[Rfam]
The family of this 137-nucleotide RNA sequence from Pichia membranifaciens is "U4 spliceosomal RNA". The family's RNA type in Rfam is spliceosomal small nuclear RNA. Lineage of the source: Eukaryota > Opisthokonta > Dikarya > saccharomyceta > Pichia. A search with the family's covariance model found it, with a score of 89 bits. Clan: U4 clan.
RNA sequence: AUCCUUAUGCUAGGGCAUUACGUGUAUCAGUGAGGAUUCGUCCGAGAUCAUGUUUUUGCUAGUUGAAAACUUCAACAUGACUACUUCCCCGUGGCUGCUUAGGCGGUUCACCUGGAGAAUUUUUGGAACCCUUUCUU
Numbered sequence: 001a002u003c004c005u006u007a008u009g010c011u012a013g014g015g016c017a018u019u020a021c022g023u024g025u026a027u028c029a030g031u032g033a034g035g036a037u038u039c040g041u042c043c044g045a046g047a048u049c050a051u052g053u054u055u056u057u058g059c060u061a062g063u064u065g066a067a068a069a070c071u072u073c074a075a076c077a078u079g080a081c082u083a084c085u086u087c088c089c090c091g092u093g094g095c096u097g098c099u100u101a102g103g104c105g106g107u108u109c110a111c112c113u114g115g116a117g118a119a120u121u122u123u124u125g126g127a128a129c130c131c132u133u134u135c136u137u
Stems, first nucleotide, its partner, number of pairs: 020053005026048003034043003085117003091111004095106004